[Rfam]
RNA sequence: UUGCAAUGAUGGUAAUAAUUUUUCGUCAACAGUAUAUCACCUUGGUGUAUGUUGAUAAGCUUGUGUCUGAGCGA
Number, nucleotide and partner (000 for none) at each position: 001u000002u073003g072004c071005a000006a000007u000008g027009a026010u025011g024012g000013u000014a000015a000016u000017a000018a000019u000020u000021u000022u000023u000024c011025g010026u009027c008028a000029a000030c000031a000032g000033u000034a000035u000036a000037u000038c000039a000040c000041c000042u000043u000044g000045g000046u000047g000048u000049a000050u000051g000052u000053u000054g000055a000056u000057a000058a000059g000060c000061u000062u000063g000064u000065g000066u000067c000068u000069g000070a000071g004072c003073g002074a000
This 74-nucleotide RNA sequence from Aquarana catesbeiana belongs to the Rfam family "Small nucleolar RNA SNORD56". The organism belongs to Aquarana, within Eukaryota. A search with the family's covariance model found it, with a score of 50 bits. The base pairs follow the family's consensus structure, which was predicted with PFOLD. Gene Ontology terms of the family: nucleolus and RNA processing.